Shown here is a 102-nucleotide RNA from Bacillus sp. FJAT-50079, a member of the family "Purine riboswitch aptamer".
A search with the family's covariance model found it, with a score of 80 bits.

RNA sequence: AAAUUAAAAAGUUCUAUUGAAUGUAUAUGCUUGGGAAUAGGGCUCAAGCGUUUCUACCUGGUAACCGUAAAUGACCAGACUACAUGAAGAACAAUAGAGAAA
Numbered sequence: 001a002a003a004u005u006a007a008a009a010a011g012u013u014c015u016a017u018u019g020a021a022u023g024u025a026u027a028u029g030c031u032u033g034g035g036a037a038u039a040g041g042g043c044u045c046a047a048g049c050g051u052u053u054c055u056a057c058c059u060g061g062u063a064a065c066c067g068u069a070a071a072u073g074a075c076c077a078g079a080c081u082a083c084a085u086g087a088a089g090a091a092c093a094a095u096a097g098a099g100a101a102a
Stems, first nucleotide, its partner, number of pairs: 018088001021085005029049007058078005064072001
Dot-bracket structure: .................(..(((((...(((((((.......)))))))........(((((.(.......).)))))..)))))..)..............

The organism belongs to Bacillus, within Bacteria.